[Rfam]
RNA sequence: UUGAAGGAGUUGGGAGAGACUGUAAAUAUAUGAAAUAUUUACAGCGCCGAAGGUGAUUCGCAAUAACUCUCAGGCAAAAGGACCAACUCUGGACG
Numbered sequence: 001u002u003g004a005a006g007g008a009g010u011u012g013g014g015a016g017a018g019a020c021u022g023u024a025a026a027u028a029u030a031u032g033a034a035a036u037a038u039u040u041a042c043a044g045c046g047c048c049g050a051a052g053g054u055g056a057u058u059c060g061c062a063a064u065a066a067c068u069c070u071c072a073g074g075c076a077a078a079a080g081g082a083c084c085a086a087c088u089c090u091g092g093a094c095g
Base pairs, nucleotide, nucleotide: 006090007089008088009087010086011085012084013083020044021043022042023041024040025039026038027037046075047074048073049071050070053069055067